Notes: A member of the RNA family "Small nucleolar RNA snoR145" from Eucalyptus grandis, 153 nucleotides long. For this family Rfam cites "Mining small RNA sequencing data: a new approach to identify small nucleolar RNAs in Arabidopsis" (Chen and Wu, Nucleic Acids Res, 2009). NCBI's taxonomy places the organism under Eukaryota, Embryophyta, Euphyllophyta, Pentapetalae, Eucalyptus. The match comes from Rfam's covariance-model search (102 bits). By type it is an H/ACA-box small nucleolar RNA. The base pairs follow the family's consensus structure, which was predicted with mfold.

RNA sequence: GAGCGAAGGUCCCAGCGGAGAGGCGGGAGCUCUGUGAACGAGGCCUCUCUAACGAUUGAACAGAGAUCUCCUUCGCGAAAUUGGUCCGCCGAAUUGUAGGAUGCCUGGAAUUCUCCCCAUUUCCGGGCAUCUGGAAUCCUCGGCCACAUCCAU
Numbered sequence: 001g002a003g004c005g006a007a008g009g010u011c012c013c014a015g016c017g018g019a020g021a022g023g024c025g026g027g028a029g030c031u032c033u034g035u036g037a038a039c040g041a042g043g044c045c046u047c048u049c050u051a052a053c054g055a056u057u058g059a060a061c062a063g064a065g066a067u068c069u070c071c072u073u074c075g076c077g078a079a080a081u082u083g084g085u086c087c088g089c090c091g092a093a094u095u096g097u098a099g100g101a102u103g104c105c106u107g108g109a110a111u112u113c114u115c116c117c118c119a120u121u122u123c124c125g126g127g128c129a130u131c132u133g134g135a136a137u138c139c140u141c142g143g144c145c146a147c148a149u150c151c152a153u
Stems, first nucleotide, its partner, number of pairs: 003076007011020001013018001025049003030042003088144005100131002103128008